[Rfam]
RNA sequence: GAACUUCUUACAGCAAACUAAAUUCAAUUGUCACUGAAAACCUUCGAGUUCUG
Numbered sequence: 001g002a003a004c005u006u007c008u009u010a011c012a013g014c015a016a017a018c019u020a021a022a023u024u025c026a027a028u029u030g031u032c033a034c035u036g037a038a039a040a041c042c043u044u045c046g047a048g049u050u051c052u053g
Stems, first nucleotide, its partner, number of pairs: 001051006
This 53-nucleotide RNA from Tieghemostelium lacteum belongs to the Rfam family "Class I RNA from Dictyostelium". The base pairs follow the family's consensus structure, which is taken from published work. The sequence is in the family's curated seed alignment. Dictyostelium Class I RNA was first reported for Aspegren et al. 2004 in Dictyostelium discoideum. Sucgang et al. 2011 identify putative homologs of Class I RNA in D. discoideum and D. purpureum. The source organism's lineage runs through Eukaryota, Amoebozoa, Evosea, Eumycetozoa and Tieghemostelium.